[Rfam]
RNA: Small nucleolar RNA SNORD89
RNA sequence: ACUGAGGAAUGAUGACAAAAAAGGCCGAAUUGCAGUGUCCAUAAGCAGUUUGCUCUCUAGAGACACAAUGACAAAGUCUCCUGAAGCGAAUUAUUACUCUGACCUCAGU
Numbered sequence: 001a002c003u004g005a006g007g008a009a010u011g012a013u014g015a016c017a018a019a020a021a022a023g024g025c026c027g028a029a030u031u032g033c034a035g036u037g038u039c040c041a042u043a044a045g046c047a048g049u050u051u052g053c054u055c056u057c058u059a060g061a062g063a064c065a066c067a068a069u070g071a072c073a074a075a076g077u078c079u080c081c082u083g084a085a086g087c088g089a090a091u092u093a094u095u096a097c098u099c100u101g102a103c104c105u106c107a108g109u
Stems, first nucleotide, its partner, number of pairs: 001109007014099002024033002034095004038089002040086001042084001044082002048066002051063001053062003068079001070077001